[Rfam]
pan motif: a 93-nucleotide RNA sequence from Desulfonispora thiosulfatigenes. NCBI's taxonomy places the organism under Bacteria, Bacillati, Bacillota, Peptococcaceae, Desulfonispora thiosulfatigenes. The family's consensus secondary structure is taken from published work. By type it is a cis-regulatory element.

RNA sequence: UGGAUAGUAUCAUAAUGAGCUAUACCAUUUUUAUAAAAAUAAAAUUUAAUAUUUGUUAUCUGCUCUGAGCCAUAAGAGGACCGAGACAGGAAG
Numbered sequence: 001u002g003g004a005u006a007g008u009a010u011c012a013u014a015a016u017g018a019g020c021u022a023u024a025c026c027a028u029u030u031u032u033a034u035a036a037a038a039a040u041a042a043a044a045u046u047u048a049a050u051a052u053u054u055g056u057u058a059u060c061u062g063c064u065c066u067g068a069g070c071c072a073u074a075a076g077a078g079g080a081c082c083g084a085g086a087c088a089g090g091a092a093g
Stems, first nucleotide, its partner, number of pairs: 001027003004023005010018002060089003063085003067081001070079002